[Rfam]
RNA sequence: CUUGGGCUCAGGUAUGUCUGCGGUGAGGCUGGUACAACUCGGCAGGUUUCACUGUAGAUCUACCUGCGCUCACG
Numbered sequence: 001c002u003u004g005g006g007c008u009c010a011g012g013u014a015u016g017u018c019u020g021c022g023g024u025g026a027g028g029c030u031g032g033u034a035c036a037a038c039u040c041g042g043c044a045g046g047u048u049u050c051a052c053u054g055u056a057g058a059u060c061u062a063c064c065u066g067c068g069c070u071c072a073c074g
Base pairs, nucleotide, nucleotide: 003072004071005070006069007068009066010065011064012063013062014061016059017058018057019056020055021054022053023052024051025050026049027048028047029046030045032043033042
The family of this 74-nucleotide sequence from Branchiostoma floridae is "mir-2056 microRNA precursor family". Pairs were carried over by alignment from the consensus structure, which was predicted with RNAalifold. The source organism's lineage runs through Eukaryota, Opisthokonta, Eumetazoa, Deuterostomia and Branchiostoma. Rfam's curators put it in the seed alignment.